[Rfam]
Shown here is a 177-nucleotide RNA from Atopostipes suicloacalis, a member of the family "Lysine riboswitch aptamer".

RNA sequence: UUCUUUGGAUGAGGCGCAAAGGACAAUAGUACGUAUUUGGGUUUGAACUGUAAUUUACAAAUAUGGAAAGGGAAAUUUGCCGAAACACUUUACAAGUUACAGCUUAUAAAGUGUUGGGUUGUAAAUGAAUAAUUUGCAAACUGUCAGAGCAUUUAGCGUUGAUGAGCUUCCCUUGUA
Numbered sequence: 001u002u003c004u005u006u007g008g009a010u011g012a013g014g015c016g017c018a019a020a021g022g023a024c025a026a027u028a029g030u031a032c033g034u035a036u037u038u039g040g041g042u043u044u045g046a047a048c049u050g051u052a053a054u055u056u057a058c059a060a061a062u063a064u065g066g067a068a069a070g071g072g073a074a075a076u077u078u079g080c081c082g083a084a085a086c087a088c089u090u091u092a093c094a095a096g097u098u099a100c101a102g103c104u105u106a107u108a109a110a111g112u113g114u115u116g117g118g119u120u121g122u123a124a125a126u127g128a129a130u131a132a133u134u135u136g137c138a139a140a141c142u143g144u145c146a147g148a149g150c151a152u153u154u155a156g157c158g159u160u161g162a163u164g165a166g167c168u169u170c171c172c173u174u175g176u177a
Base pairs, nucleotide, nucleotide: 007171008170009169011167016080017079018078019077020076024072032065033064034063035062036061037060038059039058084115085114086113087112088111089110090109091108092107094105095104116142117141119139120138121137122136123135124134125133126132144162145161146160147159149157150156
Taxonomically the source falls in Atopostipes suicloacalis (Bacteria, Bacillota, Bacilli, Carnobacteriaceae).